RNA: skipping-rope RNA
Organism: Butyrivibrio fibrisolvens
Nucleotides: 100
Base pairs, nucleotide, nucleotide: 001100002099003098004097005096006095007094008093011034012033013032014031015030023086024085025084026083027082036066037045038044039043071092072091073090074089075088
Number, partner (000 for none) and nucleotide at each position: 001100g002099a003098u004097u005096u006095u007094g008093g009000a010000g011034g012033u013032a014031g015030a016000a017000g018000a019000a020000u021000u022000c023086g024085u025084c026083c027082a028000c029000g030015u031014c032013u033012a034011c035000a036066c037045g038044c039043c040000g041000a042000u043039g044038g045037u046000u047000u048000g049000a050000c051000a052000g053000g054000a055000g056000a057000u058000a059000a060000c061000u062000c063000c064000g065000a066036g067000a068000g069000a070000u071092g072091c073090g074089g075088g076000a077000g078000g079000u080000a081000u082027u083026g084025g085024a086023c087000g088075c089074c090073c091072g092071c093008c094007c095006a096005a097004a098003a099002u100001c